The record is a 154-nucleotide RNA sequence from Camellia sinensis, which matches "Small nucleolar RNA snoR138" in Rfam. NCBI's taxonomy places the organism under Eukaryota, Embryophyta, Euphyllophyta, asterids, Camellia sinensis. Pairs were carried over by alignment from the consensus structure, which was predicted with mfold.

RNA sequence: AUUGCCUCUCGAAUAACCGGACGGAGCAUGUAUACACAGUUGUCGUUCGGUCCAGACAAAGGCACAAAAUGAGAGAGAGACUCUCUCCGAAUCAAUUUGAGGAUAAGGAACUGUUCCAUUUCUCAAUUUCUUUCCUAGAUUGCUUCGGAUAUAU
Numbered sequence: 001a002u003u004g005c006c007u008c009u010c011g012a013a014u015a016a017c018c019g020g021a022c023g024g025a026g027c028a029u030g031u032a033u034a035c036a037c038a039g040u041u042g043u044c045g046u047u048c049g050g051u052c053c054a055g056a057c058a059a060a061g062g063c064a065c066a067a068a069a070u071g072a073g074a075g076a077g078a079g080a081c082u083c084u085c086u087c088c089g090a091a092u093c094a095a096u097u098u099g100a101g102g103a104u105a106a107g108g109a110a111c112u113g114u115u116c117c118a119u120u121u122c123u124c125a126a127u128u129u130c131u132u133u134c135c136u137a138g139a140u141u142g143c144u145u146c147g148g149a150u151a152u153a154u
Stems, first nucleotide, its partner, number of pairs: 003064005009059001016051007024043001026041001088147004093142001095127003099124003103121001105119001107117004129139003